[Rfam]
RNA sequence: UUUGCAUUAAUGAGGAUUACACAGAAAACCUUUGUUAAGGGUUUGUGUCGAUCUGCUAAUUGGCAAA
Numbered sequence: 001u002u003u004g005c006a007u008u009a010a011u012g013a014g015g016a017u018u019a020c021a022c023a024g025a026a027a028a029c030c031u032u033u034g035u036u037a038a039g040g041g042u043u044u045g046u047g048u049c050g051a052u053c054u055g056c057u058a059a060u061u062g063g064c065a066a067a
Base pairs, nucleotide, nucleotide: 001067002066003065004064005063015053016052017051018050019048020047021046022045023044024043030039031038032037